[Rfam]
RNA sequence: GCCCUUUUGGCCAAGUGGUAAGGCAUCGCACUCGUAAUGCGGGGAUCGUGGGUUCAAUUCCCACAGAGGGCA
Numbered sequence: 001g002c003c004c005u006u007u008u009g010g011c012c013a014a015g016u017g018g019u020a021a022g023g024c025a026u027c028g029c030a031c032u033c034g035u036a037a038u039g040c041g042g043g044g045a046u047c048g049u050g051g052g053u054u055c056a057a058u059u060c061c062c063a064c065a066g067a068g069g070g071c072a
Base pairs, nucleotide, nucleotide: 001071002070003069004068005067006066007065010024011023012022026042027041028040029039030038048064049063050062051061052060
tRNA: a 72-nucleotide sequence from Saccharomyces cerevisiae. Pairs were carried over by alignment from the consensus structure, which is taken from published work. Lineage of the source: Eukaryota > Fungi > saccharomyceta > Saccharomycotina > Saccharomyces. From the family's description: Transfer RNA (tRNA) molecules are approximately 80 nucleotides in length. Rfam's curators put it in the seed alignment.